[Rfam]
RNA: isrI Hfq binding RNA
Organism: Salmonella enterica
RNA sequence: AUUGUUGGUGUCUUCCACCUGACCAGAGGCGAUGAUAUCUGCCAUAACGUGUGAAGCAGAAGUGUUGUUAGGGCCGUUACAACCACCAGCGAAGAUAU
Numbered sequence: 001a002u003u004g005u006u007g008g009u010g011u012c013u014u015c016c017a018c019c020u021g022a023c024c025a026g027a028g029g030c031g032a033u034g035a036u037a038u039c040u041g042c043c044a045u046a047a048c049g050u051g052u053g054a055a056g057c058a059g060a061a062g063u064g065u066u067g068u069u070a071g072g073g074c075c076g077u078u079a080c081a082a083c084c085a086c087c088a089g090c091g092a093a094g095a096u097a098u
Stems, first nucleotide, its partner, number of pairs: 007039006016031001018029003041052002043049001